Notes: Rfam assigns this 72-nucleotide RNA from Saccharomonospora marina to the family "Actinobacteria sRNA Ms_AS-8". Lineage of the source: Bacteria > Actinomycetota > Pseudonocardiaceae > Saccharomonospora > Saccharomonospora marina. For this family Rfam cites "Identification of small RNAs in Mycobacterium smegmatis using heterologous Hfq" (Li et al., RNA, 2013).
RNA sequence: CCUGAUCAGAACUUCGAACCUUUCAGAUCAUCCUCGGGAAGGUGCGCCCUCUCACGUCACCUCGCCGGGGAC
Numbered sequence: 001c002c003u004g005a006u007c008a009g010a011a012c013u014u015c016g017a018a019c020c021u022u023u024c025a026g027a028u029c030a031u032c033c034u035c036g037g038g039a040a041g042g043u044g045c046g047c048c049c050u051c052u053c054a055c056g057u058c059a060c061c062u063c064g065c066c067g068g069g070g071a072c
Stems, first nucleotide, its partner, number of pairs: 003030005008023003038053002042051001044049001